[Rfam]
RNA sequence: CGGGGAAAGAAGACCCUGUUGAGCUUGACUCUAGUUUGACAUUGUGAAAAGACAUAGAGGGUGUAGAAUAAGUGGGAGCUUCGGCGCCGGUGAAAUACCACUACCUUUAUCGUCUUUUUACUUAUUCGGUUAGGCGGGGCUGAGUGGAAACACUCACCUUUUGGAAUUAAGGUCUUUUACAGACUUACCCGGGCUGAAGACAUUGUCAGGUGGGGAGUUUGGCUGGGGCGGCACAUCUGUUAAACAAUAACGCAGGUGUCCUAAGGGGGACUCAUGGAGAACAGAAAUCUCCAGUAGAACAAAAGGGUAAAAGUCCCCUUGAUUUUGAUUUUCAGUGUGAAUACAAACCAUGAAAGUGUGGCCUAUCGAUCCUUUAGUCCCUCGGAAUUUGAGGCUAGAGGUGCCAGAAAAGUUACCACAGGGAUAACUGGCUUGUGGCAGCCAAGCGUUCAUAGCGACGUUGCUUUUUGAUCCUUCGAUGUCGGCUCUUCCUAUCAUACCGAAGCAGAAUUCGGUAAGCGUUGGAUUGUUCACCCACUAAUAGGGAACGUGAGCUGGGUUUAGACCGUCGUGAGACAGGUUAGUUUUACCCUA
Numbered sequence: 001c002g003g004g005g006a007a008a009g010a011a012g013a014c015c016c017u018g019u020u021g022a023g024c025u026u027g028a029c030u031c032u033a034g035u036u037u038g039a040c041a042u043u044g045u046g047a048a049a050a051g052a053c054a055u056a057g058a059g060g061g062u063g064u065a066g067a068a069u070a071a072g073u074g075g076g077a078g079c080u081u082c083g084g085c086g087c088c089g090g091u092g093a094a095a096u097a098c099c100a101c102u103a104c105c106u107u108u109a110u111c112g113u114c115u116u117u118u119u120a121c122u123u124a125u126u127c128g129g130u131u132a133g134g135c136g137g138g139g140c141u142g143a144g145u146g147g148a149a150a151c152a153c154u155c156a157c158c159u160u161u162u163g164g165a166a167u168u169a170a171g172g173u174c175u176u177u178u179a180c181a182g183a184c185u186u187a188c189c190c191g192g193g194c195u196g197a198a199g200a201c202a203u204u205g206u207c208a209g210g211u212g213g214g215g216a217g218u219u220u221g222g223c224u225g226g227g228g229c230g231g232c233a234c235a236u237c238u239g240u241u242a243a244a245c246a247a248u249a250a251c252g253c254a255g256g257u258g259u260c261c262u263a264a265g266g267g268g269g270a271c272u273c274a275u276g277g278a279g280a281a282c283a284g285a286a287a288u289c290u291c292c293a294g295u296a297g298a299a300c301a302a303a304a305g306g307g308u309a310a311a312a313g314u315c316c317c318c319u320u321g322a323u324u325u326u327g328a329u330u331u332u333c334a335g336u337g338u339g340a341a342u343a344c345a346a347a348c349c350a351u352g353a354a355a356g357u358g359u360g361g362c363c364u365a366u367c368g369a370u371c372c373u374u375u376a377g378u379c380c381c382u383c384g385g386a387a388u389u390u391g392a393g394g395c396u397a398g399a400g401g402u403g404c405c406a407g408a409a410a411a412g413u414u415a416c417c418a419c420a421g422g423g424a425u426a427a428c429u430g431g432c433u434u435g436u437g438g439c440a441g442c443c444a445a446g447c448g449u450u451c452a453u454a455g456c457g458a459c460g461u462u463g464c465u466u467u468u469u470g471a472u473c474c475u476u477c478g479a480u481g482u483c484g485g486c487u488c489u490u491c492c493u494a495u496c497a498u499a500c501c502g503a504a505g506c507a508g509a510a511u512u513c514g515g516u517a518a519g520c521g522u523u524g525g526a527u528u529g530u531u532c533a534c535c536c537a538c539u540a541a542u543a544g545g546g547a548a549c550g551u552g553a554g555c556u557g558g559g560u561u562u563a564g565a566c567c568g569u570c571g572u573g574a575g576a577c578a579g580g581u582u583a584g585u586u587u588u589a590c591c592c593u594a
Stems, first nucleotide, its partner, number of pairs: 003593003007588002015422004020418002022414005028218004035210007044121010054110007071102005078085002125198005135191004143154004171185005221234001222232003235257006260361002266318006272298002275293006299308002323347003328342004349358003372400006380394004431472001433470001435469001437465006446456002483558001484556004488550001489547005496521001499516006523537003527533001564582004568577003
This 594-nucleotide part of an RNA from Acaromyces ingoldii belongs to the Rfam family "Eukaryotic large subunit ribosomal RNA". The match comes from Rfam's covariance-model search (3356 bits). Clan: LSU clan. Gene Ontology terms of the family: ribosome and structural constituent of ribosome.